The family of this 135-nucleotide RNA from Erwinia sp. OLSSP12 is "Yersinia sRNA 155(RyfD)". The literature on the family includes a 2016 paper in Proc Natl Acad Sci U S A by Righetti et al., "Temperature-responsive in vitro RNA structurome of Yersinia pseudotuberculosis". NCBI's taxonomy places the organism under Bacteria, Pseudomonadota, Gammaproteobacteria, Erwiniaceae, Erwinia. A search with the family's covariance model found it, with a score of 74 bits. The sRNA was identified by and is confirmed to have a stable secondary structure by using genome-wide structure probing at different temperatures. The function is unknown. Rfam classes the family as a small RNA.

[Rfam]
RNA sequence: UAAGACGAUCCAGGUUGGUGUUUUUUCCAGCAAAAAAACGGGUCAAUAAUCUUGAAAAUUUGAGGACAGACCUCAUCUAAUCUCCAGUAGCAAUUUUGACCUGUAGGGGGAAAUUAUGCGCCUGGAUCGUCUUAC
Numbered sequence: 001u002a003a004g005a006c007g008a009u010c011c012a013g014g015u016u017g018g019u020g021u022u023u024u025u026u027c028c029a030g031c032a033a034a035a036a037a038a039c040g041g042g043u044c045a046a047u048a049a050u051c052u053u054g055a056a057a058a059u060u061u062g063a064g065g066a067c068a069g070a071c072c073u074c075a076u077c078u079a080a081u082c083u084c085c086a087g088u089a090g091c092a093a094u095u096u097u098g099a100c101c102u103g104u105a106g107g108g109g110g111a112a113a114u115u116a117u118g119c120g121c122c123u124g125g126a127u128c129g130u131c132u133u134a135c
Stems, first nucleotide, its partner, number of pairs: 002133011014121002017115003021041002024038003050065006069074001081111005088105002